[Rfam]
RNA sequence: GGGUCUCUCUGGUUAGACCAGAUUUGAGCCUGGGAGCUCUCUGGCUAGUCUAGGCA
Numbered sequence: 001g002g003g004u005c006u007c008u009c010u011g012g013u014u015a016g017a018c019c020a021g022a023u024u025u026g027a028g029c030c031u032g033g034g035a036g037c038u039c040u041c042u043g044g045c046u047a048g049u050c051u052a053g054g055c056a
Base pairs, nucleotide, nucleotide: 004056007054008053011050012049013048014047015046016045018044019043020042021041022040026039027038028037029036

The family of this 56-nucleotide sequence from Lentivirus humimdef1 is "Trans-activation response element (TAR)". Rfam's curators write: This family represents the HIV trans-activation response (TAR) element which is known to be required for the trans-activation of the viral promoter and for virus replication. NCBI's taxonomy places the organism under Viruses, Pararnavirae, Artverviricota, Revtraviricetes, Human immunodeficiency virus 1. Gene Ontology terms of the family: miRNA-mediated post-transcriptional gene silencing and RISC complex. The literature on the family includes a 2003 paper in J Biol Chem by Kulinski et al., "The apical loop of the HIV-1 TAR RNA hairpin is stabilized by a cross-loop base pair". The family's RNA type in Rfam is microRNA precursor.